[Rfam]
RNA sequence: GGCCUGUGAUCCACAUAAAAUUUGUCCGUACCAUCUGAUUAUAUUUAUGUGAUGUGUUGAAACCUUAGCUUCUGAGGCCU
Numbered sequence: 001g002g003c004c005u006g007u008g009a010u011c012c013a014c015a016u017a018a019a020a021u022u023u024g025u026c027c028g029u030a031c032c033a034u035c036u037g038a039u040u041a042u043a044u045u046u047a048u049g050u051g052a053u054g055u056g057u058u059g060a061a062a063c064c065u066u067a068g069c070u071u072c073u074g075a076g077g078c079c080u
Stems, first nucleotide, its partner, number of pairs: 001079004
RNA: small nucleolar RNA snoR117